[Rfam]
RNA sequence: AACGCCUGUCGCGGAUCUCUCCCUUCCCCUGGAGCAGAUCUACUGGAACGGGGGCUCCUCCCCAAGCCGCCGUUCCCCGGCCCCGCCAACCUCCCCCUGGUUGGCGGGGCUUCUUA
Numbered sequence: 001a002a003c004g005c006c007u008g009u010c011g012c013g014g015a016u017c018u019c020u021c022c023c024u025u026c027c028c029c030u031g032g033a034g035c036a037g038a039u040c041u042a043c044u045g046g047a048a049c050g051g052g053g054g055c056u057c058c059u060c061c062c063c064a065a066g067c068c069g070c071c072g073u074u075c076c077c078c079g080g081c082c083c084c085g086c087c088a089a090c091c092u093c094c095c096c097c098u099g100g101u102u103g104g105c106g107g108g109g110c111u112u113c114u115u116a
Stems, first nucleotide, its partner, number of pairs: 004012001006011001013041006019034004045076007053068004079111008088102004
RNA: Xanthomonadaceae sRNA sX13
Organism: Pseudoxanthomonas suwonensis